[Rfam]
RNA sequence: AGCCUUCUGUAUCCGCGCUGAGAUUUCGUCAAUGAUCAAACCACUGGGGUUGAUGCAACUUCCCAAACAAGUGACGUG
Dot-bracket structure: .((.((.(.(.(....(..(((.((.((((.....................)))).))))))....).).).)).)).
Numbered sequence: 001a002g003c004c005u006u007c008u009g010u011a012u013c014c015g016c017g018c019u020g021a022g023a024u025u026u027c028g029u030c031a032a033u034g035a036u037c038a039a040a041c042c043a044c045u046g047g048g049g050u051u052g053a054u055g056c057a058a059c060u061u062c063c064c065a066a067a068c069a070a071g072u073g074a075c076g077u078g
Stems, first nucleotide, its partner, number of pairs: 002077002005074002008071001010069001012067001017062001020061003024058002027055004